[Rfam]
RNA: PhotoRC-II RNA
RNA sequence: CCUCUGAGAACAACUGCUUUAACCGAGACCUAUGAGCAGUAUAAGCAUUAGUCUCUCAUAUCCAUCAGUGAAGGGAUUGGUGGAAAUAUAGUUUCGC
Numbered sequence: 001c002c003u004c005u006g007a008g009a010a011c012a013a014c015u016g017c018u019u020u021a022a023c024c025g026a027g028a029c030c031u032a033u034g035a036g037c038a039g040u041a042u043a044a045g046c047a048u049u050a051g052u053c054u055c056u057c058a059u060a061u062c063c064a065u066c067a068g069u070g071a072a073g074g075g076a077u078u079g080g081u082g083g084a085a086a087u088a089u090a091g092u093u094u095c096g097c
Stems, first nucleotide, its partner, number of pairs: 014039005020034002025055005062083007